[Rfam]
RNA sequence: CAUGUGUUGUACUGAAAGAAAAUAUUGCAGUUUUCUGUAAUACUGAAAAACUGCAAUAUUUUCUUUCAGUACAACACAUGA
Numbered sequence: 001c002a003u004g005u006g007u008u009g010u011a012c013u014g015a016a017a018g019a020a021a022a023u024a025u026u027g028c029a030g031u032u033u034u035c036u037g038u039a040a041u042a043c044u045g046a047a048a049a050a051c052u053g054c055a056a057u058a059u060u061u062u063c064u065u066u067c068a069g070u071a072c073a074a075c076a077c078a079u080g081a
Stems, first nucleotide, its partner, number of pairs: 003078010015066009025056003028045003